[Rfam]
RNA: FMN riboswitch aptamer (RFN element)
RNA sequence: GAUAUUCUUCAGGGCAGGGUGUAAUUCCUUACCGGCGGUGAUAGUCCGCGACUCCUUCAUAAAAAAAGGAUUGAUUUGGUGAAACUCCAAAACCGACAGUUAAAGUCUGGAUGGGAGAAGGAUAAA
Dot-bracket structure: ..((((((((......(((.......))).[[((((((.....[[))))...((..............))....(((((.......)))))]])).(((.....]]))).......))))))))..